[Rfam]
RNA sequence: UGGUCUAGUUCUGUGUGGAAGACUAGUGAUUUUGUUGUUUUUAGAUAACUGACAACAAAUCACAGUCUGCCAUAUGGCACAGACUA
Numbered sequence: 001u002g003g004u005c006u007a008g009u010u011c012u013g014u015g016u017g018g019a020a021g022a023c024u025a026g027u028g029a030u031u032u033u034g035u036u037g038u039u040u041u042u043a044g045a046u047a048a049c050u051g052a053c054a055a056c057a058a059a060u061c062a063c064a065g066u067c068u069g070c071c072a073u074a075u076g077g078c079a080c081a082g083a084c085u086a
Stems, first nucleotide, its partner, number of pairs: 002085005008080002011077008020068005026063007034056006
mir-7 microRNA precursor family: an 86-nucleotide RNA sequence from Piaya cayana.
The family's consensus secondary structure was predicted with PFOLD.
The organism belongs to Piaya, within Eukaryota.
The literature on the family includes a 2001 paper in Science by Lagos-Quintana et al., "Identification of novel genes coding for small expressed RNAs".
Rfam describes the family as follows. This family represents the microRNA (miRNA) precursor mir-7.
Its family is annotated with miRNA-mediated post-transcriptional gene silencing and RISC complex in the Gene Ontology.